Guanidine-I riboswitch aptamer: a 104-nucleotide RNA sequence from [Anoxybacillus] calidus. It scores 84 bits against the family's covariance model. Taxonomically the source falls in Paranoxybacillus (Bacteria, Bacillati, Caryophanales, Anoxybacillaceae). Rfam links the family to the GO term regulation of gene expression. This family represents a conserved RNA structure found upstream of the ykkC and yxkD genes in Bacillus subtilis and related genes in other bacteria.
RNA sequence: CGGCAAGUUUUCUAGGGUUCCGUGGUUGUUAAACAGCUAGUCUGCGACCGAGAGAAAACGCACAGAAUUGACUGUGUACACGGAGGGACAAAAGCCCGGGAGGA
Numbered sequence: 001c002g003g004c005a006a007g008u009u010u011u012c013u014a015g016g017g018u019u020c021c022g023u024g025g026u027u028g029u030u031a032a033a034c035a036g037c038u039a040g041u042c043u044g045c046g047a048c049c050g051a052g053a054g055a056a057a058a059c060g061c062a063c064a065g066a067a068u069u070g071a072c073u074g075u076g077u078a079c080a081c082g083g084a085g086g087g088a089c090a091a092a093a094g095c096c097c098g099g100g101a102g103g104a
Stems, first nucleotide, its partner, number of pairs: 007059006015049002020046001021044001022042001023039006060077006079099001081102001085097003